[Rfam]
RNA: Small nucleolar RNA snoR60
RNA sequence: GAGCAUGUGACGAACAACUCGGACAAUUAUGGGUGAUGCAAAGACCGAGUUUCUGAUGCU
Numbered sequence: 001g002a003g004c005a006u007g008u009g010a011c012g013a014a015c016a017a018c019u020c021g022g023a024c025a026a027u028u029a030u031g032g033g034u035g036a037u038g039c040a041a042a043g044a045c046c047g048a049g050u051u052u053c054u055g056a057u058g059c060u
Stems, first nucleotide, its partner, number of pairs: 002060004